[Rfam]
Nucleotides: 079
Base pairs, nucleotide, nucleotide: 001079002078003077004076
Number, partner (000 for none) and nucleotide at each position: 001079g002078g003077g004076a005000g006000a007000u008000g009000a010000u011000g012000a013000u014000g015000a016000g017000a018000a019000u020000a021000u022000a023000u024000u025000g026000g027000u028000c029000c030000g031000u032000g033000u034000u035000u036000c037000u038000g039000a040000u041000u042000u043000u044000a045000c046000c047000g048000u049000g050000a051000c052000u053000g054000a055000u056000a057000c058000u059000u060000u061000u062000u063000u064000a065000c066000c067000a068000a069000c070000c071000u072000c073000u074000g075000a076004u077003c078002c079001c